[Rfam]
RNA sequence: CGGAUGACCCCGCGAUGCUGUCGGACCCCCGACCUGGCAGCACCGCGGGGCCUUCCA
Numbered sequence: 001c002g003g004a005u006g007a008c009c010c011c012g013c014g015a016u017g018c019u020g021u022c023g024g025a026c027c028c029c030c031g032a033c034c035u036g037g038c039a040g041c042a043c044c045g046c047g048g049g050g051c052c053u054u055c056c057a
Stems, first nucleotide, its partner, number of pairs: 002056003008050007016042007
RNA: F6 TB sRNA